[Rfam]
RNA sequence: AAGAGCCUUGAGGCAAUAAAGAAUGUGAAGAUUGACUUAAGAAAAAA
Numbered sequence: 001a002a003g004a005g006c007c008u009u010g011a012g013g014c015a016a017u018a019a020a021g022a023a024u025g026u027g028a029a030g031a032u033u034g035a036c037u038u039a040a041g042a043a044a045a046a047a
Base pairs, nucleotide, nucleotide: 007041008040010038011037012036014034015033016032017031